[Rfam]
RNA sequence: CCGGGAUGAGGUAGUACGUUGUAUUGUUGUGGGGUCGGGAUUCGUGCCCCAAUCAGAGAUAACGAUACAACUUACUACUUUCCCCGG
Numbered sequence: 001c002c003g004g005g006a007u008g009a010g011g012u013a014g015u016a017c018g019u020u021g022u023a024u025u026g027u028u029g030u031g032g033g034g035u036c037g038g039g040a041u042u043c044g045u046g047c048c049c050c051a052a053u054c055a056g057a058g059a060u061a062a063c064g065a066u067a068c069a070a071c072u073u074a075c076u077a078c079u080u081u082c083c084c085c086g087g
Base pairs, nucleotide, nucleotide: 001087002086003085004084005083008081009080010079011078012077013076014075015074016073018071019070020069021068022067023066024065025064026063027062032049033048034047035046